[Rfam]
RNA: Bacterial large subunit ribosomal RNA, nucleotides 2604 to 2868
RNA sequence: UGAGAAUUGAAGAGGGCUGCUCCUAGUACGAGAGGACCGGAGUGGACGAACCUCUGGUGUUCCGGUUGUAUCGCCAGAUGCAUUGCCGGGUAGCUACGUUCGGAACUGAUAACCGCUGAAAGCAUCUAAGCGGGAAGCAGGCUUUGAGAUGAGUUCUCACUGGGAAUUUAAUUCCCCUAAAGGGUCGUUGGAGACUACAACGUUGAUAGGUCAGGUGUGUAAGGGUUGCGAGGCCUUGAGCUAACUGAUACUAAUUGCCCGUGAG
Numbered sequence: 001u002g003a004g005a006a007u008u009g010a011a012g013a014g015g016g017c018u019g020c021u022c023c024u025a026g027u028a029c030g031a032g033a034g035g036a037c038c039g040g041a042g043u044g045g046a047c048g049a050a051c052c053u054c055u056g057g058u059g060u061u062c063c064g065g066u067u068g069u070a071u072c073g074c075c076a077g078a079u080g081c082a083u084u085g086c087c088g089g090g091u092a093g094c095u096a097c098g099u100u101c102g103g104a105a106c107u108g109a110u111a112a113c114c115g116c117u118g119a120a121a122g123c124a125u126c127u128a129a130g131c132g133g134g135a136a137g138c139a140g141g142c143u144u145u146g147a148g149a150u151g152a153g154u155u156c157u158c159a160c161u162g163g164g165a166a167u168u169u170a171a172u173u174c175c176c177c178u179a180a181a182g183g184g185u186c187g188u189u190g191g192a193g194a195c196u197a198c199a200a201c202g203u204u205g206a207u208a209g210g211u212c213a214g215g216u217g218u219g220u221a222a223g224g225g226u227u228g229c230g231a232g233g234c235c236u237u238g239a240g241c242u243a244a245c246u247g248a249u250a251c252u253a254a255u256u257g258c259c260c261g262u263g264a265g
Stems, first nucleotide, its partner, number of pairs: 001159008011145004017045007047102005055096003062089005067082006106140003113133005162177003179262001182260004186202005207253003210249005217241001223236005